[Rfam]
RNA sequence: UGAGCGUUAUGAUGAUGAAAGAUAUUCUUUCAAGUGUCUAGCUCAGUUUCUCCUGAGGUCACCUCAGGAG
Numbered sequence: 001u002g003a004g005c006g007u008u009a010u011g012a013u014g015a016u017g018a019a020a021g022a023u024a025u026u027c028u029u030u031c032a033a034g035u036g037u038c039u040a041g042c043u044c045a046g047u048u049u050c051u052c053c054u055g056a057g058g059u060c061a062c063c064u065c066a067g068g069a070g
Stems, first nucleotide, its partner, number of pairs: 002044004011038003017031005050070009
RNA: L17 ribosomal protein downstream element